RNA sequence: AGCCACGCGAUGCACACAUAGCGAACUAUUCUUUCGCCUUUUACUAAAGAAUACCGUGUGUACGUCGCAAAUAGUGGCAUACGCCCAUUUUUGGAGGGCUUCCUAUUCAGGAACCC
Numbered sequence: 001a002g003c004c005a006c007g008c009g010a011u012g013c014a015c016a017c018a019u020a021g022c023g024a025a026c027u028a029u030u031c032u033u034u035c036g037c038c039u040u041u042u043a044c045u046a047a048a049g050a051a052u053a054c055c056g057u058g059u060g061u062a063c064g065u066c067g068c069a070a071a072u073a074g075u076g077g078c079a080u081a082c083g084c085c086c087a088u089u090u091u092u093g094g095a096g097g098g099c100u101u102c103c104u105a106u107u108c109a110g111g112a113a114c115c116c
Base pairs, nucleotide, nucleotide: 003077004076005075006074008067009066010065011064012063014061015060016059017058018057027053028052029051030050031049032048033047034046097115098114100112101111102110
Description: A member of the RNA family "U5 spliceosomal RNA" from Cuscuta europaea, 116 nucleotides long. NCBI's taxonomy places the organism under Eukaryota, Streptophyta, Streptophytina, Convolvulaceae, Cuscuta subgen. Cuscuta. Pairs were carried over by alignment from the consensus structure, which is taken from published work. Rfam's curators write: U5 RNA is a component of both types of known spliceosome. The precise function of this molecule is unknown, though it is known that the 5' loop is required for splice site selection and p220 binding, and that both the 3' stem-loop and the Sm site are important for Sm protein binding and cap methylation.